Record summary: The family of this 496-nucleotide RNA sequence from Pseudogymnoascus verrucosus is "RNase MRP". On this family, see Schmitt et al., FASEB J 1993: "Secondary structure of RNase MRP RNA as predicted by phylogenetic comparison".
RNA sequence: UCCUCGUUCAAAGGAUCGCAGUCGAAGCACACAAACGGAGCAGACACAUUUAUUGUUGUCUCUCAGCCUGUCAUGGGCUAGUCAAUGCUUUGGGAGAAAGUCCCCGGACGACCUUUUUCUACAACUCGUUGUGGAAAAAAGGAACGCGGAAACGCGCCGCCAUAGAAGCAUACUGCGGCUUCUUUUUUUCUCCUCUUACCUUUCUUCAGAUCGACCUUGUUCGCUGCUUGUACUCGCUUUCGGCGCUUUUGAUUGCUGCUUCGGGGGGAGGGGGAGACCUUAUGGAUGAAGAUAUGAGUCCGAGCUCUCCUAACCUCAGUUGUGGUAGAGCAUUUGCAAUGAUCGCGGGGAGGCGGGGAAGUGUCUUCGGUCUGGGUUGGGGUUUAUGGGAGGGGGGAGGCUUUCGUCGAGAGUGAUAGUUAUGCGAUUGCUCUUCUUGCCAGCUUCACAGUUGGUCGAGGGGGGUAACUCGAUGGGGCUUAUUCUUGAGACGAGG
Numbered sequence: 001u002c003c004u005c006g007u008u009c010a011a012a013g014g015a016u017c018g019c020a021g022u023c024g025a026a027g028c029a030c031a032c033a034a035a036c037g038g039a040g041c042a043g044a045c046a047c048a049u050u051u052a053u054u055g056u057u058g059u060c061u062c063u064c065a066g067c068c069u070g071u072c073a074u075g076g077g078c079u080a081g082u083c084a085a086u087g088c089u090u091u092g093g094g095a096g097a098a099a100g101u102c103c104c105c106g107g108a109c110g111a112c113c114u115u116u117u118u119c120u121a122c123a124a125c126u127c128g129u130u131g132u133g134g135a136a137a138a139a140a141g142g143a144a145c146g147c148g149g150a151a152a153c154g155c156g157c158c159g160c161c162a163u164a165g166a167a168g169c170a171u172a173c174u175g176c177g178g179c180u181u182c183u184u185u186u187u188u189u190c191u192c193c194u195c196u197u198a199c200c201u202u203u204c205u206u207c208a209g210a211u212c213g214a215c216c217u218u219g220u221u222c223g224c225u226g227c228u229u230g231u232a233c234u235c236g237c238u239u240u241c242g243g244c245g246c247u248u249u250u251g252a253u254u255g256c257u258g259c260u261u262c263g264g265g266g267g268g269a270g271g272g273g274g275a276g277a278c279c280u281u282a283u284g285g286a287u288g289a290a291g292a293u294a295u296g297a298g299u300c301c302g303a304g305c306u307c308u309c310c311u312a313a314c315c316u317c318a319g320u321u322g323u324g325g326u327a328g329a330g331c332a333u334u335u336g337c338a339a340u341g342a343u344c345g346c347g348g349g350g351a352g353g354c355g356g357g358g359a360a361g362u363g364u365c366u367u368c369g370g371u372c373u374g375g376g377u378u379g380g381g382g383u384u385u386a387u388g389g390g391a392g393g394g395g396g397g398a399g400g401c402u403u404u405c406g407u408c409g410a411g412a413g414u415g416a417u418a419g420u421u422a423u424g425c426g427a428u429u430g431c432u433c434u435u436c437u438u439g440c441c442a443g444c445u446u447c448a449c450a451g452u453u454g455g456u457c458g459a460g461g462g463g464g465g466u467a468a469c470u471c472g473a474u475g476g477g478g479c480u481u482a483u484u485c486u487u488g489a490g491a492c493g494a495g496g
Base pairs, nucleotide, nucleotide: 002496003495004494005493006492007491008489009488010487011486014429015428016427017426018425019424022094023092024091025090026089027088028087038069040067041066043064044063098481099480100479102478103477104476105475298401299400300399305397306396307395308394309393310392314390315389316388431465432464433463434462435461436460437459438458439457